[Rfam]
RNA sequence: CUUCAGCGAGCCCAGCCACAGCGGACGCUCCGCCGGACGGUCGCCGUAGGCCGCGAUCAGCGCCCCCGCCUC
Numbered sequence: 001c002u003u004c005a006g007c008g009a010g011c012c013c014a015g016c017c018a019c020a021g022c023g024g025a026c027g028c029u030c031c032g033c034c035g036g037a038c039g040g041u042c043g044c045c046g047u048a049g050g051c052c053g054c055g056a057u058c059a060g061c062g063c064c065c066c067c068g069c070c071u072c
Stems, first nucleotide, its partner, number of pairs: 016024002031068002038062002040057003044053001046051001
Dot-bracket structure: ...............((.....))......((.....(((((.(.(....).).)))...))....))....